[Rfam]
RNA sequence: AGCGCCGCGUAAGCGGGCCGAGGGUCGACCCCUGCGGUGUAGGGGGUUUCAGUCUGCCCCCGGAAAGCUGCGG
Numbered sequence: 001a002g003c004g005c006c007g008c009g010u011a012a013g014c015g016g017g018c019c020g021a022g023g024g025u026c027g028a029c030c031c032c033u034g035c036g037g038u039g040u041a042g043g044g045g046g047u048u049u050c051a052g053u054c055u056g057c058c059c060c061c062g063g064a065a066a067g068c069u070g071c072g073g
Stems, first nucleotide, its partner, number of pairs: 003039006042061006